Record summary
The family of this 81-nucleotide RNA sequence from Erythrobacter sp. 3-20A1M is "Makes More Granules Regulator RNA (mmgR)". SuhB later renamed mmgR (makes more granules regulator) was a putative non-coding RNA found multiple times in the Agrobacterium tumefaciens genome and related alpha-proteobacteria. Other non-coding RNAs uncovered in the same analysis include: speF, ybhL, metA, and serC.Several studies inSinorhizobium meliloti showed that suhB element is indeed a non-coding RNA:firstly it was detected on Northern blot and called Sm8RNA, secondly in an RNAseq study referred to as SmelC689.The mutant phenotype's (strain lacking the small RNA) cytoplasm contains higher content of polyhydroxybutyrate (PBH)storage granules than wild type strain. The family is grouped with related families in Rfam's "suhB sRNA clan". It is annotated as a small RNA. It scores 45 bits against the family's covariance model.
[Rfam]
RNA sequence: AGAGCGUGCCUUUCAGGCAUCCUCUCCCAAACUUUUCAGGCCCGGCCGGUUUAUCCAGCCGGGCCUUUUUCUUUGCCGCGU
Numbered sequence: 001a002g003a004g005c006g007u008g009c010c011u012u013u014c015a016g017g018c019a020u021c022c023u024c025u026c027c028c029a030a031a032c033u034u035u036u037c038a039g040g041c042c043c044g045g046c047c048g049g050u051u052u053a054u055c056c057a058g059c060c061g062g063g064c065c066u067u068u069u070u071c072u073u074u075g076c077c078g079c080g081u
Stems, first nucleotide, its partner, number of pairs: 008018004038066009